[Rfam]
Shown here is a 70-nucleotide RNA from Acyrthosiphon pisum, a member of the family "mir-3017 microRNA precursor family". Lineage of the source: Eukaryota > Opisthokonta > Eumetazoa > Protostomia > Acyrthosiphon. The family's consensus secondary structure was predicted with RNAalifold.
RNA sequence: UCGUGUUCUGUGGCUGACUGGGCUGGCGCUGGACUGGCGGGCGCCCGCCGGUCUGUCACAGAACACGAGA
Numbered sequence: 001u002c003g004u005g006u007u008c009u010g011u012g013g014c015u016g017a018c019u020g021g022g023c024u025g026g027c028g029c030u031g032g033a034c035u036g037g038c039g040g041g042c043g044c045c046c047g048c049c050g051g052u053c054u055g056u057c058a059c060a061g062a063a064c065a066c067g068a069g070a
Base pairs, nucleotide, nucleotide: 001068002067003066004065005064006063007062008061009060010059011058012057013056014055016053017052018051021049022048025045026044027043